[Rfam]
RNA sequence: AAAAAAACCGCCAUCAUGGCGGGGAAGACAGGGAUGGUGUCUAUGGCAAGGAAAACAGGGAUACUAUGUUA
Numbered sequence: 001a002a003a004a005a006a007a008c009c010g011c012c013a014u015c016a017u018g019g020c021g022g023g024g025a026a027g028a029c030a031g032g033g034a035u036g037g038u039g040u041c042u043a044u045g046g047c048a049a050g051g052a053a054a055a056c057a058g059g060g061a062u063a064c065u066a067u068g069u070u071a
Stems, first nucleotide, its partner, number of pairs: 008023002010020003027070004032065001035063002038061001040059002044055001
RNA: Hfq-regulated sRNA 1